A member of the RNA family "Ribosomal protein L19 leader" from Anoxybacteroides amylolyticum, 41 nucleotides long. It scores 45 bits against the family's covariance model. For this family Rfam cites "Diverse mechanisms for regulating ribosomal protein synthesis in Escherichia coli" (Zengel and Lindahl, Prog Nucleic Acid Res Mol Biol, 1994). It is annotated as a cis-regulatory leader. Pairs were carried over by alignment from the consensus structure, which was predicted with CMfinder.
RNA sequence: ACGAUGUUCCGCUGCUAAUGAACAAUUGGUAUGAGCAUCUG
Numbered sequence: 001a002c003g004a005u006g007u008u009c010c011g012c013u014g015c016u017a018a019u020g021a022a023c024a025a026u027u028g029g030u031a032u033g034a035g036c037a038u039c040u041g
Base pairs, nucleotide, nucleotide: 003039004038005037006036007035008034009033013031014030015029016028017027018026